[Rfam]
RNA sequence: AUCCUCCGAACGUAAACCCGCUGUAAGGCGGGGACACAAAGCCACAGAUCCUGCGUUUCCGAAGAACAGGAUGGCUGGGCUGCCGGA
Numbered sequence: 001a002u003c004c005u006c007c008g009a010a011c012g013u014a015a016a017c018c019c020g021c022u023g024u025a026a027g028g029c030g031g032g033g034a035c036a037c038a039a040a041g042c043c044a045c046a047g048a049u050c051c052u053g054c055g056u057u058u059c060c061g062a063a064g065a066a067c068a069g070g071a072u073g074g075c076u077g078g079g080c081u082g083c084c085g086g087a
Stems, first nucleotide, its partner, number of pairs: 012037002017032006040081004045077003048072003056065003
Dot-bracket structure: ...........((...((((((....))))))...))..((((.((((((.....(((....)))....)))..)))))))......